[Rfam]
Record summary
Rfam assigns this 98-nucleotide RNA to the family "Cyanobacterial functional RNA 13". Pairs were carried over by alignment from the consensus structure, which was predicted with mfold. The family's RNA type in Rfam is small RNA.
RNA sequence: GAGGCCAAACCUCAAAGAGUCAACUCUGCGUUUACUCCAAGACAUAAAUUGGUUCUAUAUAGUACGAUCCAAUUUAAUAACCCCUGUAGUAGUUGGAA
Numbered sequence: 001g002a003g004g005c006c007a008a009a010c011c012u013c014a015a016a017g018a019g020u021c022a023a024c025u026c027u028g029c030g031u032u033u034a035c036u037c038c039a040a041g042a043c044a045u046a047a048a049u050u051g052g053u054u055c056u057a058u059a060u061a062g063u064a065c066g067a068u069c070c071a072a073u074u075u076a077a078u079a080a081c082c083c084c085u086g087u088a089g090u091a092g093u094u095g096g097a098a
Base pairs, nucleotide, nucleotide: 001013002012003011004010017037018036019035020034022032023031024030045076046075047074048073049072050071051070052069054067055066081096082095